[Rfam]
RNA sequence: GGGCAAUGAUGUAAAAUUUCAUUUCUCGAAACUUAGGAUUCAGAAAUAUGUUUCGAUGGUGACAAUGAUUUAUGCGUGGCUGAGCCCC
Numbered sequence: 001g002g003g004c005a006a007u008g009a010u011g012u013a014a015a016a017u018u019u020c021a022u023u024u025c026u027c028g029a030a031a032c033u034u035a036g037g038a039u040u041c042a043g044a045a046a047u048a049u050g051u052u053u054c055g056a057u058g059g060u061g062a063c064a065a066u067g068a069u070u071u072a073u074g075c076g077u078g079g080c081u082g083a084g085c086c087c088c
Stems, first nucleotide, its partner, number of pairs: 001087004
RNA: small nucleolar RNA snoR126